The record is a 129-nucleotide RNA sequence, which matches "Small nucleolar RNA SNORA30/SNORA37 family" in Rfam.
By type it is an H/ACA-box small nucleolar RNA.
The sequence is in the family's curated seed alignment.
Gene Ontology terms of the family: nucleolus and RNA processing.
[Rfam]
RNA sequence: CUGGCACUUUCACAGUUCCUUCCCCAGGCAGUGGGGCCAGGAUUUGGUAGCUGGUGCUGAGAGAAAACCCUUGAUUGUAUUCUUGCCCUGGGAUUAUACCAGUGGCAACUGUCACUCAAUGGGACAGUG
Numbered sequence: 001c002u003g004g005c006a007c008u009u010u011c012a013c014a015g016u017u018c019c020u021u022c023c024c025c026a027g028g029c030a031g032u033g034g035g036g037c038c039a040g041g042a043u044u045u046g047g048u049a050g051c052u053g054g055u056g057c058u059g060a061g062a063g064a065a066a067a068c069c070c071u072u073g074a075u076u077g078u079a080u081u082c083u084u085g086c087c088c089u090g091g092g093a094u095u096a097u098a099c100c101a102g103u104g105g106c107a108a109c110u111g112u113c114a115c116u117c118a119a120u121g122g123g124a125c126a127g128u129g
Stems, first nucleotide, its partner, number of pairs: 003058006013046003017042004022036004068123003071119004076114002079112002083108005088102004